The record is a 61-nucleotide RNA from Chamaesiphon minutus, which matches "Nitrogen stress-induced RNA 1" in Rfam.
The match comes from Rfam's covariance-model search (52 bits).
Taxonomically the source falls in Chamaesiphon minutus (Bacteria, Cyanobacteriota, Cyanophyceae, Gomontiellales).
The pairing is the family consensus, mapped onto this sequence.

RNA sequence: UGGUAGAUGCACCCUGAUUAUUCGUCCCGAACUUAUCUUAUGGUAAGUUGGGACUUUUUAU
Numbered sequence: 001u002g003g004u005a006g007a008u009g010c011a012c013c014c015u016g017a018u019u020a021u022u023c024g025u026c027c028c029g030a031a032c033u034u035a036u037c038u039u040a041u042g043g044u045a046a047g048u049u050g051g052g053a054c055u056u057u058u059u060a061u
Base pairs, nucleotide, nucleotide: 002013003012004011025053026052027051028050030049031048032047033046034045035044036043